RNA sequence: AUACUUACCUGGACGGGGUCGACGGCUGAUCAAGAAGAGUCGUGGCCUAGGCUAGUGGUCCAUAUUGCACCUGGUGGAUGCGUUGGCCUACCAUCUCCCCAAGUGGGAGAGUGGACGUCGUAAUUUGUGGUAGAGGGGGUACACGUUCGCGCGGCCCCUG
Numbered sequence: 001a002u003a004c005u006u007a008c009c010u011g012g013a014c015g016g017g018g019u020c021g022a023c024g025g026c027u028g029a030u031c032a033a034g035a036a037g038a039g040u041c042g043u044g045g046c047c048u049a050g051g052c053u054a055g056u057g058g059u060c061c062a063u064a065u066u067g068c069a070c071c072u073g074g075u076g077g078a079u080g081c082g083u084u085g086g087c088c089u090a091c092c093a094u095c096u097c098c099c100c101a102a103g104u105g106g107g108a109g110a111g112u113g114g115a116c117g118u119c120g121u122a123a124u125u126u127g128u129g130g131u132a133g134a135g136g137g138g139g140u141a142c143a144c145g146u147u148c149g150c151g152c153g154g155c156c157c158c159u160g
Stems, first nucleotide, its partner, number of pairs: 012119004016048006023042005049089004059078005091114003094110003098106002135159005142153001144151002